[Rfam]
RNA: TPP riboswitch aptamer (THI element)
Organism: Vallitalea pronyensis
RNA sequence: AUUUUUUGCUAGGGGUGCUGGUGUUGCCAGCUGAGAUUAAGAACCAUAUUCUUUGACCCUAUAAACCUGAUCUGGUUAAUACCAGCGGAGGGAAGCUUAUAACAUAUACU
Numbered sequence: 001a002u003u004u005u006u007u008g009c010u011a012g013g014g015g016u017g018c019u020g021g022u023g024u025u026g027c028c029a030g031c032u033g034a035g036a037u038u039a040a041g042a043a044c045c046a047u048a049u050u051c052u053u054u055g056a057c058c059c060u061a062u063a064a065a066c067c068u069g070a071u072c073u074g075g076u077u078a079a080u081a082c083c084a085g086c087g088g089a090g091g092g093a094a095g096c097u098u099a100u101a102a103c104a105u106a107u108a109c110u
Stems, first nucleotide, its partner, number of pairs: 008096003011060004017031005039053004066091003072085004